Annotation
This 82-nucleotide RNA sequence from Metallococcus carri belongs to the Rfam family "ZMP/ZTP riboswitch aptamer (pfl RNA motif)". Lineage of the source: Bacteria > Bacillati > Actinomycetota > Micrococcales > Metallococcus. The match comes from Rfam's covariance-model search (52 bits).
RNA sequence: UCGGCGGCACACGACUGGCGCAGGUGGACCACCACCGGGAAGUGAACCGCAUCGACGCGCAUCGCCCGCCUGGGUGCGCCUC
Numbered sequence: 001u002c003g004g005c006g007g008c009a010c011a012c013g014a015c016u017g018g019c020g021c022a023g024g025u026g027g028a029c030c031a032c033c034a035c036c037g038g039g040a041a042g043u044g045a046a047c048c049g050c051a052u053c054g055a056c057g058c059g060c061a062u063c064g065c066c067c068g069c070c071u072g073g074g075u076g077c078g079c080c081u082c
Stems, first nucleotide, its partner, number of pairs: 004050004010044003015039002017070004024035004059077005
Dot-bracket structure: ...((((..(((..(([[[[...((((....))))..))..)))..))))........(((((...]]]]..))))).....